[Rfam]
RNA: Ribosomal protein L10 leader
Organism: Latilactobacillus sakei
RNA sequence: AGUUGGUUAUUUAUGCUACCGAAGACUCAGGUGCCAAUAGGCUUAAUAUCCUGCCGAGGAAGAUACGUUGAAAUCCCUCUCUAUGUCUUGGUGGACAUGGAGUUUUUUAUUUUAUAA
Numbered sequence: 001a002g003u004u005g006g007u008u009a010u011u012u013a014u015g016c017u018a019c020c021g022a023a024g025a026c027u028c029a030g031g032u033g034c035c036a037a038u039a040g041g042c043u044u045a046a047u048a049u050c051c052u053g054c055c056g057a058g059g060a061a062g063a064u065a066c067g068u069u070g071a072a073a074u075c076c077c078u079c080u081c082u083a084u085g086u087c088u089u090g091g092u093g094g095a096c097a098u099g100g101a102g103u104u105u106u107u108u109a110u111u112u113u114a115u116a117a
Stems, first nucleotide, its partner, number of pairs: 028053004033042003079102010